[Rfam]
RNA sequence: AAGCGAUGAUGAUAUUUAGUCAUGCACCACUCUGAUUUGAUUUUAAUCGAUCAUUGUUGAAAAUUGACACAAACCCAUUUGUUUAUCUGAGCUU
Numbered sequence: 001a002a003g004c005g006a007u008g009a010u011g012a013u014a015u016u017u018a019g020u021c022a023u024g025c026a027c028c029a030c031u032c033u034g035a036u037u038u039g040a041u042u043u044u045a046a047u048c049g050a051u052c053a054u055u056g057u058u059g060a061a062a063a064u065u066g067a068c069a070c071a072a073a074c075c076c077a078u079u080u081g082u083u084u085a086u087c088u089g090a091g092c093u094u
Base pairs, nucleotide, nucleotide: 001094002093003092004091
RNA: Small nucleolar RNA Z221/R21b
Organism: Zostera marina